[Rfam]
RNA sequence: GCCCAUUCCAGGGAGAUCCCCGGCAAGGGGCUGAGAAACCGCUGGCACGCCGGACAUCGUCCGGAUGAACGCGCGGAAAUCCUUAGAACCUGAUCCGGUUCAUACCGGCGUAGGGAUUGGAUUUCGCCCCGCUC
Numbered sequence: 001g002c003c004c005a006u007u008c009c010a011g012g013g014a015g016a017u018c019c020c021c022g023g024c025a026a027g028g029g030g031c032u033g034a035g036a037a038a039c040c041g042c043u044g045g046c047a048c049g050c051c052g053g054a055c056a057u058c059g060u061c062c063g064g065a066u067g068a069a070c071g072c073g074c075g076g077a078a079a080u081c082c083u084u085a086g087a088a089c090c091u092g093a094u095c096c097g098g099u100u101c102a103u104a105c106c107g108g109c110g111u112a113g114g115g116a117u118u119g120g121a122u123u124u125c126g127c128c129c130c131g132c133u134c
Stems, first nucleotide, its partner, number of pairs: 007121004011083004018030004039076004089114004095108004
RNA: TPP riboswitch aptamer (THI element)
Organism: Beijerinckia sp. 28-YEA-48